[Rfam]
RNA sequence: ACACAGAAGGGAGGUGGUUCGGAGCAUGAGUGAUUACCGGACGAGUGAGGUGGCUGCGGGCUAGCGCUCGUCACCACACCUAGUGCGGUGCCGGACCCGCGCGUGAGAGCGCGCAGCCGGCCCAAUCCCAGCAGUCACCCGACCCGCAGGCCGCCGGUAACCGUCCGGCCGGCUUCCCGCCGCCUCGCGCGGCCGGAACCACGGCCUGCGGGUCGUCUGCU
Dot-bracket structure: .............(((((..................................))))).((((.((((.(((.....................................))).)).)).)))).................(((((((((((((.(((((.................................)))))......)))))))))))))......
Record summary:
Actinobacteria sRNA Ms_IGR-5: a 221-nucleotide RNA sequence from Streptomyces uncialis.